[Rfam]
RNA: Actino-pnp RNA
RNA sequence: GCCGGUCCUCGGUAGUGGCCCCCGGAGACGCAAGAGGAUCCCCGGGUGCUUCGAUCGAAGACCGGC
Numbered sequence: 001g002c003c004g005g006u007c008c009u010c011g012g013u014a015g016u017g018g019c020c021c022c023c024g025g026a027g028a029c030g031c032a033a034g035a036g037g038a039u040c041c042c043c044g045g046g047u048g049c050u051u052c053g054a055u056c057g058a059a060g061a062c063c064g065g066c
Base pairs, nucleotide, nucleotide: 001066002065003064004063005062006061007060009058010057011056012055013054017050018049019048021046022045023044024043025042027040028039